[Rfam]
RNA sequence: UAGCUUUAGCUGGUUGAAACCGGGUCAAAUUUUUUUAUUGCUAUUUGGUCCCCUUCAACCAGCUGUGGUUG
Dot-bracket structure: ..(((..(((((((((((...((.((((((............))))))))...)))))))))))..)))..
RNA: mir-133 microRNA precursor family
Organism: Phyllotreta striolata